[Rfam]
RNA sequence: GCAAAAACUGUCGAUGCGUCUCGUAUAAUGUCGGGGAUAUGGCCCGAAAGUCUCUACCCAAAAACCUUGAAUUUUUGGACUACGAGUGAGCGUGGAUAGAAA
Numbered sequence: 001g002c003a004a005a006a007a008c009u010g011u012c013g014a015u016g017c018g019u020c021u022c023g024u025a026u027a028a029u030g031u032c033g034g035g036g037a038u039a040u041g042g043c044c045c046g047a048a049a050g051u052c053u054c055u056a057c058c059c060a061a062a063a064a065c066c067u068u069g070a071a072u073u074u075u076u077g078g079a080c081u082a083c084g085a086g087u088g089a090g091c092g093u094g095g096a097u098a099g100a101a102a
Base pairs, nucleotide, nucleotide: 020086021085022084023083024082025081029049031047032046033045034044035043058078059077060076061075062074063073064072
The family of this 102-nucleotide RNA sequence from Paenibacillus xerothermodurans is "Purine riboswitch aptamer".
The organism belongs to Paenibacillus, within Bacteria.